[Rfam]
RNA sequence: AAGAUUUUAGAUUUCGGUAUCGCUGUAUCUCAUCGUUAAUCUCACUUCUCGACUUUACCUCGGCUAAUUUAGCCGGGGUUUUU
Numbered sequence: 001a002a003g004a005u006u007u008u009a010g011a012u013u014u015c016g017g018u019a020u021c022g023c024u025g026u027a028u029c030u031c032a033u034c035g036u037u038a039a040u041c042u043c044a045c046u047u048c049u050c051g052a053c054u055u056u057a058c059c060u061c062g063g064c065u066a067a068u069u070u071a072g073c074c075g076g077g078g079u080u081u082u083u
Stems, first nucleotide, its partner, number of pairs: 057079008